[Rfam]
RNA sequence: UUUCACGGCUGAAUUAGAGAUCGGCUGUGAACCUUUAAACACUCUGUUGGAGUAGACUCAUGUCUCUAAACGCUGAAAUCAAGGCUCAAAUCGUAGCCGAACACGCUCGUGGCGCU
Numbered sequence: 001u002u003u004c005a006c007g008g009c010u011g012a013a014u015u016a017g018a019g020a021u022c023g024g025c026u027g028u029g030a031a032c033c034u035u036u037a038a039a040c041a042c043u044c045u046g047u048u049g050g051a052g053u054a055g056a057c058u059c060a061u062g063u064c065u066c067u068a069a070a071c072g073c074u075g076a077a078a079u080c081a082a083g084g085c086u087c088a089a090a091u092c093g094u095a096g097c098c099g100a101a102c103a104c105g106c107u108c109g110u111g112g113c114g115c116u
Base pairs, nucleotide, nucleotide: 007026008025009024010023011022012021047069048068049067050066051065052064
The record is a 116-nucleotide sequence from Aeromonas simiae, which matches "Ribosomal S15 leader" in Rfam.
The family's consensus secondary structure is taken from published work.
A search with the family's covariance model found it, with a score of 86 bits.
The E. coli Ribosomal S15 gene 5' UTR can form two alternative structures. One that is a series of three hairpins, The other includes a pseudoknot. This structure causes translational regulation of the S15 protein.
The family is grouped with related families in Rfam's "Ribosomal Protein S15 Leader clan".